MAT2A 3'UTR stem loop F: a 66-nucleotide RNA from Carlito syrichta.
The family's consensus secondary structure is taken from published work.
Rfam 15.1 lists 403 matches to the family in 255 species.
It scores 79 bits against the family's covariance model.
The organism belongs to Carlito, within Eukaryota.
[Rfam]
RNA sequence: CACGGAGAAAGCUGACGUGGCUGGUGUGGCACAGACGAGCCAGCUUGUUUACAUGCUUAUUCCAUG
Numbered sequence: 001c002a003c004g005g006a007g008a009a010a011g012c013u014g015a016c017g018u019g020g021c022u023g024g025u026g027u028g029g030c031a032c033a034g035a036c037g038a039g040c041c042a043g044c045u046u047g048u049u050u051a052c053a054u055g056c057u058u059a060u061u062c063c064a065u066g
Stems, first nucleotide, its partner, number of pairs: 001066002004063004009058004014049003019045007026032002